[Rfam]
RNA sequence: GCCACACCUAGCCCGACGGGGCGAACCUCGCAACCCUAAGCGAAUGGUGUGGCUUCUUAAUUUAGGG
Numbered sequence: 001g002c003c004a005c006a007c008c009u010a011g012c013c014c015g016a017c018g019g020g021g022c023g024a025a026c027c028u029c030g031c032a033a034c035c036c037u038a039a040g041c042g043a044a045u046g047g048u049g050u051g052g053c054u055u056c057u058u059a060a061u062u063u064a065g066g067g
Base pairs, nucleotide, nucleotide: 001053002052003051004050005049006048007047008046011022012021013020014019028043029042030041031040034067035066036065037064038063039062
RNA: int-alpA RNA
Organism: Methylotenera versatilis